Record summary
A member of the RNA family "L2-Alphaproteobacteria ribosomal protein leader", 67 nucleotides long. For this family Rfam cites "Discovery of 20 novel ribosomal leader candidates in bacteria and archaea" (Eckert and Weinberg, BMC Microbiol, 2020).
[Rfam]
RNA sequence: UGGUACCUUCGGGGACCUAAACACAGCCAGACCAAAUGGUUUGGCAUAGCUAAACGGAAGACAGAAA
Numbered sequence: 001u002g003g004u005a006c007c008u009u010c011g012g013g014g015a016c017c018u019a020a021a022c023a024c025a026g027c028c029a030g031a032c033c034a035a036a037u038g039g040u041u042u043g044g045c046a047u048a049g050c051u052a053a054a055c056g057g058a059a060g061a062c063a064g065a066a067a
Stems, first nucleotide, its partner, number of pairs: 002017003006014003026045007